Rfam assigns this 76-nucleotide RNA from Zea mays to the family "Small nucleolar RNA snoR53Y". The source organism's lineage runs through Eukaryota, Streptophytina, Spermatophyta, Poales and Zea. The base pairs follow the family's consensus structure, which was predicted with WAR. Rfam classes the family as a C/D-box small nucleolar RNA. The family has 7 seed sequences and 513 matches in Rfam 15.1. A reference for the family is Brown et al. (2001), "Multiple snoRNA gene clusters from Arabidopsis", RNA. Its Rfam clan is "snoR53 clan".

RNA sequence: GCUCCCAGUGAUGGUCUAUAUUAACCAUGCUAAUACUGAUGUCCUUUGACGAGUAUAACAAUGUGCUGAGGGAGCU
Numbered sequence: 001g002c003u004c005c006c007a008g009u010g011a012u013g014g015u016c017u018a019u020a021u022u023a024a025c026c027a028u029g030c031u032a033a034u035a036c037u038g039a040u041g042u043c044c045u046u047u048g049a050c051g052a053g054u055a056u057a058a059c060a061a062u063g064u065g066c067u068g069a070g071g072g073a074g075c076u
Stems, first nucleotide, its partner, number of pairs: 001075005